[Rfam]
Nucleotides: 105
Base pairs, nucleotide, nucleotide: 006093007092008091009090010089011055012054013053014052016049017030018029019028020027021026037048038047039046040045061086062085063084067080068079069078070077
Number, partner (000 for none) and nucleotide at each position: 001000c002000a003000c004000c005000a006093c007092u008091g009090c010089u011055g012054g013053g014052g015000g016049u017030g018029c019028c020027g021026c022000g023000u024000c025000a026021g027020u028019g029018g030017c031000u032000g033000a034000g035000a036000c037048u038047c039046g040045c041000u042000u043000g044000g045040g046039c047038g048037a049016g050000a051000a052014c053013c054012c055011c056000u057000u058000g059000a060000a061086c062085c063084u064000g065000a066000u067080c068079c069078g070077g071000g072000u073000c074000a075000u076000g077070c078069c079068g080067g081000c082000g083000g084063a085062g086061g087000g088000a089010a090009g091008c092007a093006g094000g095000g096000u097000g098000c099000c100000a101000a102000u103000g104000g105000g